Shown here is a 165-nucleotide part of an RNA from Trichinella nativa, a member of the family "Eukaryotic small subunit ribosomal RNA". Rfam links the family to the GO terms structural constituent of ribosome and ribosome. The base pairs follow the family's consensus structure, which is taken from published work.

RNA sequence: CCGCCCGUCGCUACUACCGAUUGGAUGAUUUAGUGAGGUGUUUUGACUGGCGCCAGUAGUCGGAUGUAUUCGGCUUCGCGCCGGGAAAUUUCCCAAACCAAAUCAUCUAGAGGAAGUAAAAGUCGUAACAAGGUUUCCGUAGGUGAACCUGCGGAAGGAUCAUUA
Numbered sequence: 001c002c003g004c005c006c007g008u009c010g011c012u013a014c015u016a017c018c019g020a021u022u023g024g025a026u027g028a029u030u031u032a033g034u035g036a037g038g039u040g041u042u043u044u045g046a047c048u049g050g051c052g053c054c055a056g057u058a059g060u061c062g063g064a065u066g067u068a069u070u071c072g073g074c075u076u077c078g079c080g081c082c083g084g085g086a087a088a089u090u091u092c093c094c095a096a097a098c099c100a101a102a103u104c105a106u107c108u109a110g111a112g113g114a115a116g117u118a119a120a121a122g123u124c125g126u127a128a129c130a131a132g133g134u135u136u137c138c139g140u141a142g143g144u145g146a147a148c149c150u151g152c153g154g155a156a157g158g159a160u161c162a163u164u165a
Base pairs, nucleotide, nucleotide: 001132003129006125007124009122012118013117014116015115017113018112021109023108024107025106026105027104028103029102030101031100033098034097037094038093040091043088044087047084048083049082050081051080052079053078055076056075061072062071134157135156136155137154138153139152140151141150142149143148